[Rfam]
RNA sequence: CACGACCGGCCGGAUUUCUCUGUGCACGCCCGCUUCACGCGGUCGUCACAGCAGGGGCCCGGCCCACAAGUGGAGGCUCCGAACUCCCACCUGACCGCUCUGCUGAGCGGCGGGUCACCGGUCAGGCGGUCCCGCACUUGAGGCGGUGACCCGCCCGAUGCGCGCCCCGCGGUCUCCGCGGCGGUGCUCCGGUUUCACGAGGAGCCCCGCCUGUGAUCGUCCGGGGCAUUUUUU
Numbered sequence: 001c002a003c004g005a006c007c008g009g010c011c012g013g014a015u016u017u018c019u020c021u022g023u024g025c026a027c028g029c030c031c032g033c034u035u036c037a038c039g040c041g042g043u044c045g046u047c048a049c050a051g052c053a054g055g056g057g058c059c060c061g062g063c064c065c066a067c068a069a070g071u072g073g074a075g076g077c078u079c080c081g082a083a084c085u086c087c088c089a090c091c092u093g094a095c096c097g098c099u100c101u102g103c104u105g106a107g108c109g110g111c112g113g114g115u116c117a118c119c120g121g122u123c124a125g126g127c128g129g130u131c132c133c134g135c136a137c138u139u140g141a142g143g144c145g146g147u148g149a150c151c152c153g154c155c156c157g158a159u160g161c162g163c164g165c166c167c168c169g170c171g172g173u174c175u176c177c178g179c180g181g182c183g184g185u186g187c188u189c190c191g192g193u194u195u196c197a198c199g200a201g202g203a204g205c206c207c208c209g210c211c212u213g214u215g216a217u218c219g220u221c222c223g224g225g226g227c228a229u230u231u232u233u234u
Stems, first nucleotide, its partner, number of pairs: 004123006012060002061116005067093002070090004074085002095110006125155005131148001132146004164227006170219003177215003180211005186205005
RNA: Streptomyces RNA 1601